[Rfam]
RNA sequence: CGGAUGGCAUUCGAAAGAAGCUGUACCGCUCUUUUUAUUUUUUCGUUUUUUUAUCGGCUUGUAUCCCGGAAGUGGAACAAGACCAUACA
Numbered sequence: 001c002g003g004a005u006g007g008c009a010u011u012c013g014a015a016a017g018a019a020g021c022u023g024u025a026c027c028g029c030u031c032u033u034u035u036u037a038u039u040u041u042u043u044c045g046u047u048u049u050u051u052u053a054u055c056g057g058c059u060u061g062u063a064u065c066c067c068g069g070a071a072g073u074g075g076a077a078c079a080a081g082a083c084c085a086u087a088c089a
Stems, first nucleotide, its partner, number of pairs: 001028003004024005010019002056084002058081005064076003